Rfam assigns this 159-nucleotide RNA from Modestobacter caceresii to the family "c-di-AMP riboswitch aptamer (ydaO/yuaA leader)".
NCBI's taxonomy places the organism under Bacteria, Actinomycetota, Actinomycetes, Geodermatophilaceae, Modestobacter.
[Rfam]
RNA sequence: GACCGUCAUCCGCAACUCGUCAAGGCAGGGGUGGGGGAACCACCGCACACGACGCGCCGACCACCAGUCGGCUCGUCUCGGGGUGAAGCCGGCAUCGCCGGCCGGGCACCGAUCGCCCGAACCCGACAGCUAACCCCUCAGGCGGUGAUCGGAGAUCAC
Numbered sequence: 001g002a003c004c005g006u007c008a009u010c011c012g013c014a015a016c017u018c019g020u021c022a023a024g025g026c027a028g029g030g031g032u033g034g035g036g037g038a039a040c041c042a043c044c045g046c047a048c049a050c051g052a053c054g055c056g057c058c059g060a061c062c063a064c065c066a067g068u069c070g071g072c073u074c075g076u077c078u079c080g081g082g083g084u085g086a087a088g089c090c091g092g093c094a095u096c097g098c099c100g101g102c103c104g105g106g107c108a109c110c111g112a113u114c115g116c117c118c119g120a121a122c123c124c125g126a127c128a129g130c131u132a133a134c135c136c137c138u139c140a141g142g143c144g145g146u147g148a149u150c151g152g153a154g155a156u157c158a159c
Stems, first nucleotide, its partner, number of pairs: 003029002031139001033137004041080001081124003089101004104118004